[Rfam]
RNA sequence: GGGCACACAGGCGAUGGGGCUCGCCUCAACCGCGGAGCACUCCGCUGAUGGCCUCUACCGCACC
Numbered sequence: 001g002g003g004c005a006c007a008c009a010g011g012c013g014a015u016g017g018g019g020c021u022c023g024c025c026u027c028a029a030c031c032g033c034g035g036a037g038c039a040c041u042c043c044g045c046u047g048a049u050g051g052c053c054u055c056u057a058c059c060g061c062a063c064c
Base pairs, nucleotide, nucleotide: 010025011024012023013022016055017054018053019052020051021050032045033044034043035042
The record is a 64-nucleotide sequence from Amycolatopsis sp. M39, which matches "Fluoride riboswitch aptamer (crcB RNA motif)" in Rfam. The family's consensus secondary structure is taken from published work. Its family is annotated with positive regulation of gene expression and response to fluoride in the Gene Ontology. The source organism's lineage runs through Bacteria, Actinomycetota, Pseudonocardiales, Pseudonocardiaceae and Amycolatopsis. A search with the family's covariance model found it, with a score of 46 bits.